[Rfam]
Annotation
Shown here is a 134-nucleotide sequence from Hemibagrus wyckioides, a member of the family "Small nucleolar RNA SNORA13". By type it is an H/ACA-box small nucleolar RNA. The base pairs follow the family's consensus structure, which was predicted with CMfinder. The organism belongs to Hemibagrus, within Eukaryota. ACA13 is a member of the H/ACA class of snoRNA that guide the sites of modification of uridines to pseudouridines.
RNA sequence: UGCCUUUAUGUGUUGCCCGUCCGUUUUCUUAGAUGGAUGUGGUGUCAAAUAAGGCGCACAGAAUCUCUUAUAAUGGCUACUUCCGGUCACACAAAUCCCUCUGGUUUCUGUGAAGCGCUGUGAUAAGGACACGA
Number, nucleotide and partner (000 for none) at each position: 001u000002g055003c054004c053005u052006u051007u000008a000009u000010g000011u047012g046013u000014u044015g043016c042017c041018c039019g038020u037021c036022c035023g034024u033025u032026u000027u000028c000029u000030u000031a000032g025033a024034u023035g022036g021037a020038u019039g018040u000041g017042g016043u015044g014045u000046c012047a011048a000049a000050u000051a006052a005053g004054g003055c002056g000057c000058a000059c000060a000061g000062a000063a000064u000065c000066u000067c127068u126069u125070a124071u122072a000073a121074u120075g119076g118077c117078u000079a000080c000081u000082u000083c115084c000085g000086g000087u000088c110089a109090c000091a000092c103093a102094a000095a000096u000097c000098c000099c000100u000101c000102u093103g092104g000105u000106u000107u000108c000109u089110g088111u000112g000113a000114a000115g083116c000117g077118c076119u075120g074121u073122g071123a000124u070125a069126a068127g067128g000129a000130c000131a000132c000133g000134a000